[Rfam]
RNA sequence: AACCCGAGACAAAACUGGUUUUCACAAUGAUCGUCCAGAUGGAUUUCCAUGUCUGAGAUCAUUGUGAAAGCUGAUUUUGUUGA
Numbered sequence: 001a002a003c004c005c006g007a008g009a010c011a012a013a014a015c016u017g018g019u020u021u022u023c024a025c026a027a028u029g030a031u032c033g034u035c036c037a038g039a040u041g042g043a044u045u046u047c048c049a050u051g052u053c054u055g056a057g058a059u060c061a062u063u064g065u066g067a068a069a070g071c072u073g074a075u076u077u078u079g080u081u082g083a
Stems, first nucleotide, its partner, number of pairs: 009080006016073010028061005